[Rfam]
RNA: SAM-I/IV (S-adenosyl methionine) riboswitch aptamer
RNA sequence: GUUCAACAUCAGGAGUUGGACAGUAGUGUCCACGCCAACCUGCCUACUCGGGCAAGGUGGUAUCGCUUAUGCAGAUGGGGCCUUUAAACAAGGUAACCAAACGAGUCCCU
Numbered sequence: 001g002u003u004c005a006a007c008a009u010c011a012g013g014a015g016u017u018g019g020a021c022a023g024u025a026g027u028g029u030c031c032a033c034g035c036c037a038a039c040c041u042g043c044c045u046a047c048u049c050g051g052g053c054a055a056g057g058u059g060g061u062a063u064c065g066c067u068u069a070u071g072c073a074g075a076u077g078g079g080g081c082c083u084u085u086a087a088a089c090a091a092g093g094u095a096a097c098c099a100a101a102c103g104a105g106u107c108c109c110u
Stems, first nucleotide, its partner, number of pairs: 007077004015033001017032005034061003039057003042053003046106005080094004